[Rfam]
Rfam assigns this 90-nucleotide RNA from Paenibacillus psychroresistens to the family "c-di-GMP-I riboswitch aptamer". Its family is annotated with cyclic-di-GMP binding in the Gene Ontology. The source organism's lineage runs through Bacteria, Bacillati, Bacilli, Paenibacillaceae and Paenibacillus.
RNA sequence: AUACGACAAGAGCAAACCAUUUGAAAGAAUGGGACGCAAAGCUAUGGACCUAAAGAAUUGUUAUAAUUCUACGGUUGCCAAGUUACCGAA
Numbered sequence: 001a002u003a004c005g006a007c008a009a010g011a012g013c014a015a016a017c018c019a020u021u022u023g024a025a026a027g028a029a030u031g032g033g034a035c036g037c038a039a040a041g042c043u044a045u046g047g048a049c050c051u052a053a054a055g056a057a058u059u060g061u062u063a064u065a066a067u068u069c070u071a072c073g074g075u076u077g078c079c080a081a082g083u084u085a086c087c088g089a090a
Base pairs, nucleotide, nucleotide: 012037013036017032018031019030020029021028022027040084041083042082043081045080046079047078048075049074050073055069056068057067058066059065060064